[Rfam]
RNA: c-di-GMP-I riboswitch aptamer
Organism: Pelotomaculum thermopropionicum
RNA sequence: CUACGUUAAGGGCAAACCCAUUGAAAGGUGGGGACGCAAAGCUAUAGGGUCUAAGGUACUUCCCGGCACUAUGAUAGCCUGGCUGUCGCU
Numbered sequence: 001c002u003a004c005g006u007u008a009a010g011g012g013c014a015a016a017c018c019c020a021u022u023g024a025a026a027g028g029u030g031g032g033g034a035c036g037c038a039a040a041g042c043u044a045u046a047g048g049g050u051c052u053a054a055g056g057u058a059c060u061u062c063c064c065g066g067c068a069c070u071a072u073g074a075u076a077g078c079c080u081g082g083c084u085g086u087c088g089c090u
Stems, first nucleotide, its partner, number of pairs: 012037002017032006040084004046080003049075003056069002059066001